[Rfam]
RNA: Bacterial large signal recognition particle RNA
RNA sequence: UCGUGCUACACGGGGAGCUGGCGGUGCCCUACACCCGCAACCCGCCACAGCGGGGUGGAAUUCCUCCCUUCGGCAAGGCGCAAGAGCCAAUGUCACAGAAAAUAAUGUUGAGGGCCGGGUCCCACGCGGCGCAGGCUUGCAAACCCCGCCAGGUCCGGAAGGAAGCAACGGUAAGCGAUGUCCAGCGGGCGCCGUGGGAGUGCCUGGCUUGAGUUCUUUUCGGUGAUAUGCUCCCAGGCUGCAGUCAACGGGCGGUGCUCGG
Number, nucleotide and partner (000 for none) at each position: 001u262002c261003g260004u000005g258006c257007u000008a000009c057010a056011c055012g030013g029014g028015g027016a000017g025018c024019u023020g000021g000022c000023g019024g018025u017026g000027c015028c014029c013030u012031a000032c000033a000034c054035c053036c052037g051038c050039a000040a000041c000042c000043c000044g000045c000046c000047a000048c000049a000050g038051c037052g036053g035054g034055g011056u010057g009058g000059a000060a000061u000062u000063c255064c254065u000066c252067c251068c250069u000070u000071c000072g246073g245074c244075a000076a000077g000078g239079c238080g000081c000082a000083a000084g233085a232086g231087c230088c000089a000090a000091u228092g227093u000094c225095a224096c223097a000098g221099a220100a000101a000102a218103u000104a215105a214106u213107g000108u000109u000110g000111a000112g210113g209114g208115c207116c206117g205118g204119g203120u202121c198122c197123c196124a195125c194126g193127c189128g000129g000130c187131g186132c185133a000134g183135g000136c000137u178138u177139g176140c175141a000142a000143a000144c000145c000146c171147c170148g169149c000150c000151a000152g000153g000154u163155c162156c161157g000158g000159a000160a000161g156162g155163a154164a000165g000166c000167a000168a000169c148170g147171g146172u000173a000174a000175g140176c139177g138178a137179u000180g000181u000182c000183c134184a000185g132186c131187g130188g000189g127190c000191g000192c000193c126194g125195u124196g123197g122198g121199a000200g000201u000202g120203c119204c118205u117206g116207g115208c114209u113210u112211g000212a000213g106214u105215u104216c000217u000218u102219u000220u099221c098222g000223g096224u095225g094226a000227u092228a091229u000230g087231c086232u085233c084234c000235c000236a000237g000238g079239c078240u000241g000242c000243a000244g074245u073246c072247a000248a000249c000250g068251g067252g066253c000254g064255g063256u000257g006258c005259u000260c003261g002262g001